[Rfam]
About this RNA: Small nucleolar RNA SNORA12: a 137-nucleotide RNA sequence from Chelonia mydas. Lineage of the source: Eukaryota > Gnathostomata > Sauria > Archelosauria > Chelonia. It is annotated as an H/ACA-box small nucleolar RNA. The family's consensus secondary structure was predicted with RNAalifold. U108 belongs to the H/ACA family of snoRNAs. The sequence is predicted to guide the pseudouridylation of the U372 residue in the 28S rRNA subunit. However it has not been reported as a pseudouridylation site. A search with the family's covariance model found it, with a score of 56 bits.

RNA sequence: CAUUGGGUGGUUUUCUACCUGGUGGAUCUGUGACCGUUUCAGAGUGGCCUUAAUCUACCACAAAGAGUAUUGGAGGACACUCGUGAAAACGUUUCAAGAACUUUUAGUUUUCAGUUAUUCUUCCCGCUCCUACAAGA
Dot-bracket structure: ....((((((..........(((.(.((((.........)))).).))).....))))).)..........((((....................(((((.................)))))....)))).......